This 179-nucleotide RNA sequence from Natranaerobius thermophilus belongs to the Rfam family "glmS glucosamine-6-phosphate activated ribozyme aptamer". It is annotated as a riboswitch. The match comes from Rfam's covariance-model search (112 bits). This entry contains a glucosamine-6-phosphate activated ribozyme that is found in the mRNA for GlmS. GlmS is an enzyme that uses fructose-6-phosphate and glutamine to generate glucosamine-6-phosphate. The ribozyme catalyses self cleavage of the glmS mRNA that is thought to regulate GlmS activity.
[Rfam]
RNA sequence: ACUGACUUAAAAGCGCCAGGGCACUUUUCUCUUGCCAUAUUCGAUAUAAAGAGAAAAGUGUUGACGAGGUGGAGGUUAAUCGAGUAAUCGGCGGAUGCCUCCCGGUGCCAUCACCACCGUUAAAGGCACAUAAUAAAACCGGGAAGCGAUUCCCGGGACAAAAAGUGCCGGGUGAUGAA
Numbered sequence: 001a002c003u004g005a006c007u008u009a010a011a012a013g014c015g016c017c018a019g020g021g022c023a024c025u026u027u028u029c030u031c032u033u034g035c036c037a038u039a040u041u042c043g044a045u046a047u048a049a050a051g052a053g054a055a056a057a058g059u060g061u062u063g064a065c066g067a068g069g070u071g072g073a074g075g076u077u078a079a080u081c082g083a084g085u086a087a088u089c090g091g092c093g094g095a096u097g098c099c100u101c102c103c104g105g106u107g108c109c110a111u112c113a114c115c116a117c118c119g120u121u122a123a124a125g126g127c128a129c130a131u132a133a134u135a136a137a138a139c140c141g142g143g144a145a146g147c148g149a150u151u152c153c154c155g156g157g158a159c160a161a162a163a164a165g166u167g168c169c170g171g172g173u174g175a176u177g178a179a
Stems, first nucleotide, its partner, number of pairs: 020062008029053005071102005080091004103119005125169005131163001139156007